[Rfam]
Rfam assigns this 435-nucleotide sequence from Chlorogloeopsis fritschii to the family "Bacterial RNase P class A". A reference for the family is Frank and Pace (1998), "Ribonuclease P: unity and diversity in a tRNA processing ribozyme", Annu Rev Biochem. It is annotated as a ribozyme. A search with the family's covariance model found it, with a score of 245 bits.
RNA sequence: AGAGUUGGCGCAGGCGGUUACAGAUCAGUCCAAUUAUGGCUGGUUUGAGGAAAGUCCGGGCUCCCGAAAGACCAAACUUGCUGGGUAACGCCCAGUGCGAGCGAUCGCGAGGAUAGUGCCACAGAAAGAUACCGCCAAAAUCAGUGAACAGUUAUCAGUAAACAGUGAACAGGAAAUACCUGAUAACUGAUAACUGAUACCUGAUAACUGAAAAAGGUAAGGGUGCAAAGGUGCGGUAAGAGCGCACCAGCAGCGUCGAGAGGCGCUGGCUCGGUAAACCCCGGUUGGGAGCAAGGUCUAUAGGAACUACGGUUGGUCUUUUUACCAGUUCCGUACAAACAGAGCCGCUAGAGGCGUUUGGUAACAAGCGUCCCAGAUAGAUUACCGCCCUCUUGAAUAAAGAGAACAGAACCCGGCUUAUGUCCAACUCUCUCC
Numbered sequence: 001a002g003a004g005u006u007g008g009c010g011c012a013g014g015c016g017g018u019u020a021c022a023g024a025u026c027a028g029u030c031c032a033a034u035u036a037u038g039g040c041u042g043g044u045u046u047g048a049g050g051a052a053a054g055u056c057c058g059g060g061c062u063c064c065c066g067a068a069a070g071a072c073c074a075a076a077c078u079u080g081c082u083g084g085g086u087a088a089c090g091c092c093c094a095g096u097g098c099g100a101g102c103g104a105u106c107g108c109g110a111g112g113a114u115a116g117u118g119c120c121a122c123a124g125a126a127a128g129a130u131a132c133c134g135c136c137a138a139a140a141u142c143a144g145u146g147a148a149c150a151g152u153u154a155u156c157a158g159u160a161a162a163c164a165g166u167g168a169a170c171a172g173g174a175a176a177u178a179c180c181u182g183a184u185a186a187c188u189g190a191u192a193a194c195u196g197a198u199a200c201c202u203g204a205u206a207a208c209u210g211a212a213a214a215a216g217g218u219a220a221g222g223g224u225g226c227a228a229a230g231g232u233g234c235g236g237u238a239a240g241a242g243c244g245c246a247c248c249a250g251c252a253g254c255g256u257c258g259a260g261a262g263g264c265g266c267u268g269g270c271u272c273g274g275u276a277a278a279c280c281c282c283g284g285u286u287g288g289g290a291g292c293a294a295g296g297u298c299u300a301u302a303g304g305a306a307c308u309a310c311g312g313u314u315g316g317u318c319u320u321u322u323u324a325c326c327a328g329u330u331c332c333g334u335a336c337a338a339a340c341a342g343a344g345c346c347g348c349u350a351g352a353g354g355c356g357u358u359u360g361g362u363a364a365c366a367a368g369c370g371u372c373c374c375a376g377a378u379a380g381a382u383u384a385c386c387g388c389c390c391u392c393u394u395g396a397a398u399a400a401a402g403a404g405a406a407c408a409g410a411a412c413c414c415g416g417c418u419u420a421u422g423u424c425c426a427a428c429u430c431u432c433u434c435c
Stems, first nucleotide, its partner, number of pairs: 001431008010423003013389006021047009052419003056416005061291004070320002075286003079283002081095005096110001097108004111281002116279002118275003132222002134218003141211005230248006250270001251268007295346003298342001303332006312325002315322001353372008